[Rfam]
RNA sequence: GGAGAUAUUGCACAUUACUAAGUUGCAGGUUGCCUCAUUGCAAUUUAGAAUGUGUGAUAUUUUC
Numbered sequence: 001g002g003a004g005a006u007a008u009u010g011c012a013c014a015u016u017a018c019u020a021a022g023u024u025g026c027a028g029g030u031u032g033c034c035u036c037a038u039u040g041c042a043a044u045u046u047a048g049a050a051u052g053u054g055u056g057a058u059a060u061u062u063u064c
Stems, first nucleotide, its partner, number of pairs: 006059010018048011
A member of the RNA family "mir-32 microRNA precursor family" from Xenopus laevis, 64 nucleotides long. The source organism's lineage runs through Eukaryota, Vertebrata, Pipoidea, Pipidae and Xenopus. Rfam links the family to the GO terms miRNA-mediated post-transcriptional gene silencing, RISC complex and Wnt signaling pathway. For this family Rfam cites "Discovery and profiling of bovine microRNAs from immune-related and embryonic tissues" (Coutinho et al., Physiol Genomics, 2007).